The record is a 63-nucleotide sequence from Pavo cristatus, which matches "MAT2A 3'UTR stem loop A" in Rfam.
Lineage of the source: Eukaryota > Euteleostomi > Dinosauria > Neognathae > Pavo.
The family's RNA type in Rfam is cis-regulatory element.
RNA sequence: CCCUUUUCCCCCAUCCUGCUGGCGUAGCCUACAGAGAAGCUUUCAGGCUCUUGGGGGAAAAGC
Dot-bracket structure: .(.(...((((.(...((..(((((.....))......)))..))......).))))..).).